[Rfam]
RNA sequence: AUCCACAUAGGGUGGAUUUUAUGCGGAAAUCCAACCGCGUACGGCCUAGAACGCCGUGUUUUCAUAAGGAGAAAAUAAAAUG
Dot-bracket structure: ((((((.....))))))..(((((((........)))))))((((.......))))..........................
RNA: freshwater-2 RNA